[Rfam]
RNA: Flavo-1 RNA
RNA sequence: UCAUAGCCCUGAUUGGAGCGAUAUCCUUUUUUGAUGUCAUCAUGAGCGUAGUCGAAGGACAAUCAAAAAAGAUUUAGCGCAAAGCAGGAACAAAC
Numbered sequence: 001u002c003a004u005a006g007c008c009c010u011g012a013u014u015g016g017a018g019c020g021a022u023a024u025c026c027u028u029u030u031u032u033g034a035u036g037u038c039a040u041c042a043u044g045a046g047c048g049u050a051g052u053c054g055a056a057g058g059a060c061a062a063u064c065a066a067a068a069a070a071g072a073u074u075u076a077g078c079g080c081a082a083a084g085c086a087g088g089a090a091c092a093a094a095c
Base pairs, nucleotide, nucleotide: 009087010086011085013083014082018078019077023073024072025071029068030067031066032065033064034063035062